[Rfam]
RNA: mir-214 microRNA precursor family
RNA sequence: AUUCAGGCUGGGUUGUCAUGUGACUGCCUGUCUGUGCCUGCUGUACAGGUGAGCGGAUGUUCUGCACAGCAAGUGUAGACAGGCAGACACAUGACAACUCUGUC
Numbered sequence: 001a002u003u004c005a006g007g008c009u010g011g012g013u014u015g016u017c018a019u020g021u022g023a024c025u026g027c028c029u030g031u032c033u034g035u036g037c038c039u040g041c042u043g044u045a046c047a048g049g050u051g052a053g054c055g056g057a058u059g060u061u062c063u064g065c066a067c068a069g070c071a072a073g074u075g076u077a078g079a080c081a082g083g084c085a086g087a088c089a090c091a092u093g094a095c096a097a098c099u100c101u102g103u104c
Base pairs, nucleotide, nucleotide: 020090021089022088025085026084027083028082029081030080031079032078033077037073039071040070041069042068043067044066046064047063048062